The record is a 111-nucleotide sequence from Penicillium cosmopolitanum, which matches "tRNA" in Rfam.
NCBI's taxonomy places the organism under Eukaryota, saccharomyceta, Pezizomycotina, Eurotiales, Penicillium.
[Rfam]
RNA sequence: GGCAGUUUGGCCGAGUGGUCUAAGGCGAUUGACUCGAAUGGUUGCAAUUUCAAAUUGUCCACCCGAUAUCAAUUCUCUUCGGAGGCGCAGGUUCGAAUCCUGCAGCUGUCG
Numbered sequence: 001g002g003c004a005g006u007u008u009g010g011c012c013g014a015g016u017g018g019u020c021u022a023a024g025g026c027g028a029u030u031g032a033c034u035c036g037a038a039u040g041g042u043u044g045c046a047a048u049u050u051c052a053a054a055u056u057g058u059c060c061a062c063c064c065g066a067u068a069u070c071a072a073u074u075c076u077c078u079u080c081g082g083a084g085g086c087g088c089a090g091g092u093u094c095g096a097a098u099c100c101u102g103c104a105g106c107u108g109u110c111g
Stems, first nucleotide, its partner, number of pairs: 001110007010026003028073005087103005
For this family Rfam cites "The tertiary structure of tRNA and the development of the genetic code" (Hou, Trends Biochem Sci, 1993). The match comes from Rfam's covariance-model search (46 bits).